[Rfam]
mir-9014 microRNA precursor family: an 88-nucleotide RNA from Equus caballus. The family has 2 seed sequences and 581 matches in Rfam 15.1. The organism belongs to Equus, within Eukaryota. The base pairs follow the family's consensus structure, which was predicted with RNAalifold.
RNA sequence: GGAGACAUAGGGAGGGAUCCCAAUACAGCCUUAGGAAAAGAAACCUGCCGCAGGAGUCUUUGAGAUUGGUGACCAUCCUAAGGCCUUA
Numbered sequence: 001g002g003a004g005a006c007a008u009a010g011g012g013a014g015g016g017a018u019c020c021c022a023a024u025a026c027a028g029c030c031u032u033a034g035g036a037a038a039a040g041a042a043a044c045c046u047g048c049c050g051c052a053g054g055a056g057u058c059u060u061u062g063a064g065a066u067u068g069g070u071g072a073c074c075a076u077c078c079u080a081a082g083g084c085c086u087u088a
Base pairs, nucleotide, nucleotide: 002087003086004085006083008081010079011078012077013076015074016073018071020069021068022067023066024065029062038060039059040058041057044054045053046052047051